[Rfam]
Nucleotides: 097
Stems, first nucleotide, its partner, number of pairs: 007091007020041007043076003046072002050070003056064002
Number, partner (000 for none) and nucleotide at each position: 001000g002000g003000u004000g005000c006000g007091c008090g009089u010088g011087c012086g013085g014000g015000a016000g017000a018000g019000a020041g021040c022039g023038g024037c025036g026035g027000g028000u029000u030000u031000c032000g033000g034000c035026c036025u037024g038023c039022c040021g041020c042000c043076g044075c045074c046072g047071a048000a049000g050070g051069a052068g053000c054000a055000a056064c057063c058000a059000c060000c061000c062000c063057g064056g065000a066000a067000u068052c069051u070050c071047u072046c073000a074045g075044g076043c077000a078000a079000a080000a081000g082000g083000g084000a085013c086012c087011g088010c089009a090008c091007g092000g093000g094000c095000a096000u097000a

A member of the RNA family "Glycine riboswitch aptamer" from Allosphingosinicella deserti, 97 nucleotides long.
Taxonomically the source falls in Allosphingosinicella (Bacteria, Pseudomonadati, Sphingomonadales, Sphingomicrobiaceae).